Streptococcus sRNA SpF59 (ldcC RNA): a 54-nucleotide RNA from Anaerofilum sp. An201. A search with the family's covariance model found it, with a score of 69 bits. On this family, see Mann et al., PLoS Pathog 2012: "Control of virulence by small RNAs in Streptococcus pneumoniae".
RNA sequence: CGACCACCCAUCCUCAUGGGUCAAGGCCAUACGGACAGCCGGGUCAACUGCCGA
Numbered sequence: 001c002g003a004c005c006a007c008c009c010a011u012c013c014u015c016a017u018g019g020g021u022c023a024a025g026g027c028c029a030u031a032c033g034g035a036c037a038g039c040c041g042g043g044u045c046a047a048c049u050g051c052c053g054a
Stems, first nucleotide, its partner, number of pairs: 002045004006021006

The base pairs follow the family's consensus structure, which was predicted with mfold.